[Rfam]
RNA sequence: CUUUGGCGAUCUCUGCCUCUCUGGGCCUGUGUCUUAGGCUCUUCAAGAUCUAACGAGCAAAGCACAGGGCCUGCAGAGAGGUAGCGCUCUGCUC
Numbered sequence: 001c002u003u004u005g006g007c008g009a010u011c012u013c014u015g016c017c018u019c020u021c022u023g024g025g026c027c028u029g030u031g032u033c034u035u036a037g038g039c040u041c042u043u044c045a046a047g048a049u050c051u052a053a054c055g056a057g058c059a060a061a062g063c064a065c066a067g068g069g070c071c072u073g074c075a076g077a078g079a080g081g082u083a084g085c086g087c088u089c090u091g092c093u094c
Stems, first nucleotide, its partner, number of pairs: 005093003008089002011086001013084011024071004028066004033062003038058004

The family of this 94-nucleotide sequence from Rattus norvegicus is "mir-330 microRNA precursor family". The literature on the family includes a 2004 paper in Proc Natl Acad Sci U S A by Kim et al., "Identification of many microRNAs that copurify with polyribosomes in mammalian neurons". Its family is annotated with RISC complex and miRNA-mediated post-transcriptional gene silencing in the Gene Ontology. The sequence is in the family's curated seed alignment.